[Rfam]
7SK RNA: a 305-nucleotide RNA sequence. On this family, see Blencowe, Curr Biol 2002: "Transcription: surprising role for an elusive small nuclear RNA". Rfam's curators write: 7SK was discovered as an abundant small nuclear RNA in the mid-70s but a possible function has only recently been suggested.

RNA sequence: GGAUGUAAGGGCGAUCUGGCUGUGACAUCUGUCACCCCAUUGAUCGCCAGGGUUGAUCUGGCUGACCUGGCUGGCUCGGCGGGUAUCCCCUUCCUCCCACACUGCUCCAUGUACGUCCCUCCAGAAGCUGCACGCACAGUCGAAGAGCAUGACCAUCCCCUAUAGAGGAGGACUGUUCUUCGGUCAAGGGUAUACCAGUAGCUGUGCAGCCCUGCUAGAACCUCUCAACAAGCUCUCAAGGACUAGAGUGAGAAUGAGACAGACUUACUUUCUUCAUGAUGCACAUGAGUCAUUGGUCCAUAUGU
Numbered sequence: 001g002g003a004u005g006u007a008a009g010g011g012c013g014a015u016c017u018g019g020c021u022g023u024g025a026c027a028u029c030u031g032u033c034a035c036c037c038c039a040u041u042g043a044u045c046g047c048c049a050g051g052g053u054u055g056a057u058c059u060g061g062c063u064g065a066c067c068u069g070g071c072u073g074g075c076u077c078g079g080c081g082g083g084u085a086u087c088c089c090c091u092u093c094c095u096c097c098c099a100c101a102c103u104g105c106u107c108c109a110u111g112u113a114c115g116u117c118c119c120u121c122c123a124g125a126a127g128c129u130g131c132a133c134g135c136a137c138a139g140u141c142g143a144a145g146a147g148c149a150u151g152a153c154c155a156u157c158c159c160c161u162a163u164a165g166a167g168g169a170g171g172a173c174u175g176u177u178c179u180u181c182g183g184u185c186a187a188g189g190g191u192a193u194a195c196c197a198g199u200a201g202c203u204g205u206g207c208a209g210c211c212c213u214g215c216u217a218g219a220a221c222c223u224c225u226c227a228a229c230a231a232g233c234u235c236u237c238a239a240g241g242a243c244u245a246g247a248g249u250g251a252g253a254a255u256g257a258g259a260c261a262g263a264c265u266u267a268c269u270u271u272c273u274u275c276a277u278g279a280u281g282c283a284c285a286u287g288a289g290u291c292a293u294u295g296g297u298c299c300a301u302a303u304g305u
Stems, first nucleotide, its partner, number of pairs: 001108003005102002009098003013093002018090002024087002027084007035074002037070003042067001044065002046062003116171002118168004122139001124137001127135002140162001142160001147158001149156001201260001202258002207256002211252001213250003223247003231244002283305003289298001291296001